[Rfam]
RNA sequence: GCGUGGGUUGGCCCGCGGCUCUCAUGUGCGGCUAUGGGGGGUAGUGGCGGGUCAGGGGGCUCCGUCACCACAAUCCCCGCGGGUGGCGGACCGGUCCGGGAGGUGCGCCACGCCUCCCGGACCGCG
Numbered sequence: 001g002c003g004u005g006g007g008u009u010g011g012c013c014c015g016c017g018g019c020u021c022u023c024a025u026g027u028g029c030g031g032c033u034a035u036g037g038g039g040g041g042u043a044g045u046g047g048c049g050g051g052u053c054a055g056g057g058g059g060c061u062c063c064g065u066c067a068c069c070a071c072a073a074u075c076c077c078c079g080c081g082g083g084u085g086g087c088g089g090a091c092c093g094g095u096c097c098g099g100g101a102g103g104u105g106c107g108c109c110a111c112g113c114c115u116c117c118c119g120g121a122c123c124g125c126g
Stems, first nucleotide, its partner, number of pairs: 001125002006092003009054008055060001062089008093123013
A member of the RNA family "Streptomyces RNA 4115" from Actinacidiphila glaucinigra, 126 nucleotides long. The match comes from Rfam's covariance-model search (71 bits). The pairing is the family consensus, mapped onto this sequence. Identified by deep sequencing of transcriptome at the end of exponential growth phase. Taxonomically the source falls in Actinacidiphila (Bacteria, Bacillati, Actinomycetota, Streptomycetaceae).